[Rfam]
RNA: Makes More Granules Regulator RNA (mmgR)
Organism: Asticcacaulis excentricus
RNA sequence: AUCGAUUGCCCUUCCUGGGCGUUUCCUCCCUGUAAACUGGCCGCGCCGUGUGCGCGGCUUUUUUUUGCCUGCG
Numbered sequence: 001a002u003c004g005a006u007u008g009c010c011c012u013u014c015c016u017g018g019g020c021g022u023u024u025c026c027u028c029c030c031u032g033u034a035a036a037c038u039g040g041c042c043g044c045g046c047c048g049u050g051u052g053c054g055c056g057g058c059u060u061u062u063u064u065u066u067g068c069c070u071g072c073g
Stems, first nucleotide, its partner, number of pairs: 008020004040058007